[Rfam]
RNA sequence: CUUGAGGAAGCGUUUUGUCCACAUCAACAGAAAACGCUUCCCUGAGGACGCGAUUUGUGCUGAUGUGGACAAAGCGCUUCCUCAGGG
Numbered sequence: 001c002u003u004g005a006g007g008a009a010g011c012g013u014u015u016u017g018u019c020c021a022c023a024u025c026a027a028c029a030g031a032a033a034a035c036g037c038u039u040c041c042c043u044g045a046g047g048a049c050g051c052g053a054u055u056u057g058u059g060c061u062g063a064u065g066u067g068g069a070c071a072a073a074g075c076g077c078u079u080c081c082u083c084a085g086g087g
Stems, first nucleotide, its partner, number of pairs: 001086021023064004028059002031056003035052003040047002
Shown here is an 87-nucleotide RNA sequence from Gossypium mustelinum, a member of the family "MIR7486 microRNA precursor family". Pairs were carried over by alignment from the consensus structure, which was predicted with RNAalifold. A search with the family's covariance model found it, with a score of 76 bits.